Rfam assigns this 90-nucleotide sequence from Hydrogenophaga crocea to the family "SAH (S-adenosyl-L-homocysteine) riboswitch aptamer". The organism belongs to Hydrogenophaga, within Bacteria.

RNA sequence: CCAUCCGAGGAGCGUUGCAGCGCCCCACCCGCACCGAGCGGGCCGCGGGCGUGAGGCUCGGACCCCUGUUUGCAACGACGCUCAUCCACU
Numbered sequence: 001c002c003a004u005c006c007g008a009g010g011a012g013c014g015u016u017g018c019a020g021c022g023c024c025c026c027a028c029c030c031g032c033a034c035c036g037a038g039c040g041g042g043c044c045g046c047g048g049g050c051g052u053g054a055g056g057c058u059c060g061g062a063c064c065c066c067u068g069u070u071u072g073c074a075a076c077g078a079c080g081c082u083c084a085u086c087c088a089c090u
Stems, first nucleotide, its partner, number of pairs: 004062005021051005